[Rfam]
RNA sequence: GAUCAAGAGACCCAACGAGAAGCUCUGGCUAGUUGGGCGGCAACCCUCUCCCGUAGCGGGGUGCCCCAGAUGAUGAUCGGGCUCCGCCGGCCUCACCGCAGGCGGCACAGCAAGUACGGCGC
Numbered sequence: 001g002a003u004c005a006a007g008a009g010a011c012c013c014a015a016c017g018a019g020a021a022g023c024u025c026u027g028g029c030u031a032g033u034u035g036g037g038c039g040g041c042a043a044c045c046c047u048c049u050c051c052c053g054u055a056g057c058g059g060g061g062u063g064c065c066c067c068a069g070a071u072g073a074u075g076a077u078c079g080g081g082c083u084c085c086g087c088c089g090g091c092c093u094c095a096c097c098g099c100a101g102g103c104g105g106c107a108c109a110g111c112a113a114g115u116a117c118g119g120c121g122c
Stems, first nucleotide, its partner, number of pairs: 001078004009038001011037006021030002039065003044061003048056002081111003086106004
Rfam assigns this 122-nucleotide sequence to the family "SAM (S-adenosyl methionine) riboswitch aptamer". The match comes from Rfam's covariance-model search (83 bits). Its Rfam clan is "SAM clan". The family's consensus secondary structure is taken from published work.